[Rfam]
Nucleotides: 097
Stems, first nucleotide, its partner, number of pairs: 001026002004023001006021006039046002048097003057090003
Number, partner (000 for none) and nucleotide at each position: 001026c002025g003000c004023c005000u006021u007020u008019g009018u010017g011016a012000g013000a014000a015000a016011u017010c018009a019008u020007a021006a022000c023004g024000g025002u026001g027000a028000c029000c030000a031000g032000u033000c034000a035000g036000a037000a038000g039046u040045c041000a042000g043000c044000a045040g046039a047000g048097g049096u050095a051000a052000u053000a054000g055000u056000a057090g058089u059088c060000a061000a062000a063000u064000g065000c066000c067000g068000a069000u070000c071000u072000g073000u074000a075000a076000u077000g078000g079000g080000c081000c082000g083000g084000a085000c086000a087000c088059g089058g090057c091000g092000a093000a094000g095050u096049a097048c